Source information:
A member of the RNA family "c-di-GMP-I riboswitch aptamer" from Bacillus sp. HNG, 85 nucleotides long. It scores 83 bits against the family's covariance model.
[Rfam]
RNA sequence: CUAUACAAAAGGCAAAAUUGUUGAAAAACAAUGACGCAAAGCCACGGGCCUAAGGAGAAUUCUCUACGGCGGCCGGGUUGCUAUA
Numbered sequence: 001c002u003a004u005a006c007a008a009a010a011g012g013c014a015a016a017a018u019u020g021u022u023g024a025a026a027a028a029c030a031a032u033g034a035c036g037c038a039a040a041g042c043c044a045c046g047g048g049c050c051u052a053a054g055g056a057g058a059a060u061u062c063u064c065u066a067c068g069g070c071g072g073c074c075g076g077g078u079u080g081c082u083a084u085a
Stems, first nucleotide, its partner, number of pairs: 012037002017032006040079004045075003048070003055064003
Rfam links the family to the GO term cyclic-di-GMP binding.
The source organism's lineage runs through Bacteria, Bacillati, Bacillota, Bacilli and Bacillus.